The record is an 82-nucleotide RNA from Drosophila pseudoobscura, which matches "mir-971 microRNA precursor family" in Rfam. Rfam's curators put it in the seed alignment. Rfam links the family to the GO terms RISC complex and miRNA-mediated post-transcriptional gene silencing.

RNA sequence: CCCAUCGCUCGCUGUAAAUUGUAAUGGCCAAAGCUUUUUUGUUGGUAGCAGCUUGGUGUUACUUCUUACAGUGAGUGUGGAG
Numbered sequence: 001c002c003c004a005u006c007g008c009u010c011g012c013u014g015u016a017a018a019u020u021g022u023a024a025u026g027g028c029c030a031a032a033g034c035u036u037u038u039u040u041g042u043u044g045g046u047a048g049c050a051g052c053u054u055g056g057u058g059u060u061a062c063u064u065c066u067u068a069c070a071g072u073g074a075g076u077g078u079g080g081a082g
Stems, first nucleotide, its partner, number of pairs: 006077008015068003027057004032053003